RNA sequence: AGUAGCAAAUGGAUGAUGAUUCAAUUAGAUGUGUGAAUGGAGAAAUCCUCCCUCAUGAACUUAAACUUUUUGAGGCAUUUUCAUAGAGACUGACUUUGCUACU
Dot-bracket structure: (((((((((.(..................................................................................))))))))))
The family of this 103-nucleotide sequence from Macleaya cordata is "Small nucleolar RNA Z266". A search with the family's covariance model found it, with a score of 65 bits. The family has 11 seed sequences and 719 matches in Rfam 15.1. Rfam classes the family as a C/D-box small nucleolar RNA. NCBI's taxonomy places the organism under Eukaryota, Euphyllophyta, Magnoliopsida, Papaveraceae, Macleaya. A reference for the family is Chen et al. (2003), "The high diversity of snoRNAs in plants: identification and comparative study of 120 snoRNA genes from Oryza sativa", Nucleic Acids Res. The family's consensus secondary structure was predicted with PFOLD.